[Rfam]
RNA: SAM riboswitch aptamer (S box leader)
RNA sequence: CGUUUAUCCAGAGCGGCGGAGGGACUGGCCCUAUGAAACCCGGCAACCGUUAACACGGUGCUAAUUCCUGCGGAUUUUCCGAGAGAUAAUAC
Numbered sequence: 001c002g003u004u005u006a007u008c009c010a011g012a013g014c015g016g017c018g019g020a021g022g023g024a025c026u027g028g029c030c031c032u033a034u035g036a037a038a039c040c041c042g043g044c045a046a047c048c049g050u051u052a053a054c055a056c057g058g059u060g061c062u063a064a065u066u067c068c069u070g071c072g073g074a075u076u077u078u079c080c081g082a083g084a085g086a087u088a089a090u091a092c
Stems, first nucleotide, its partner, number of pairs: 004089005013041001015040002021031003025070001027068002042062004047058002049054001066084001071081004